Notes:
Shown here is a 134-nucleotide RNA sequence from Drosophila yakuba, a member of the family "Small nucleolar RNA psi28S-3316". Rfam's curators put it in the seed alignment. Its family is annotated with nucleolus and RNA processing in the Gene Ontology. The source organism's lineage runs through Eukaryota, Neoptera, Drosophilinae, Drosophila and Sophophora. From the family's description: psi28S-3316 is a member of the H/ACA class of snoRNA. This family is responsible for guiding the modification of uridine 3316 in Drosophila 28S rRNA to pseudouridine.

RNA sequence: CGCACCUAAAAGCGUUUUCUUGCCAGCCCCUUAAGUGCUCUCGAAAAUCGUAGAUGUGUGCCAGAGCAAUCGUCGCAGUUGCAAGUGAUCUGAAUCCAUGACAGAAUCUGGUCCAUUUUAAACUGGGCUCAUUU
Numbered sequence: 001c002g003c004a005c006c007u008a009a010a011a012g013c014g015u016u017u018u019c020u021u022g023c024c025a026g027c028c029c030c031u032u033a034a035g036u037g038c039u040c041u042c043g044a045a046a047a048u049c050g051u052a053g054a055u056g057u058g059u060g061c062c063a064g065a066g067c068a069a070u071c072g073u074c075g076c077a078g079u080u081g082c083a084a085g086u087g088a089u090c091u092g093a094a095u096c097c098a099u100g101a102c103a104g105a106a107u108c109u110g111g112u113c114c115a116u117u118u119u120a121a122a123c124u125g126g127g128c129u130c131a132u133u134u
Stems, first nucleotide, its partner, number of pairs: 002061004006056001012051003015047005022038002025036001074127001076125004083118005088112003093107001095105002